[Rfam]
RNA sequence: GUCGGUCUUCGGUAGUGGCCUUUCGGCAGAGCUUGGAAGAGAGCCAGCCCGGAGGGCUUCGAUCGAUGACCGCC
Number, nucleotide and partner (000 for none) at each position: 001g074002u000003c072004g071005g070006u069007c068008u000009u066010c065011g064012g063013u062014a000015g000016u000017g058018g057019c056020c055021u054022u053023u052024c051025g050026g049027c000028a000029g000030a000031g048032c047033u046034u000035g000036g000037a000038a000039g000040a000041g000042a000043g000044c000045c000046a033047g032048c031049c026050c025051g024052g023053a022054g021055g020056g019057c018058u017059u000060c000061g000062a013063u012064c011065g010066a009067u000068g007069a006070c005071c004072g003073c000074c001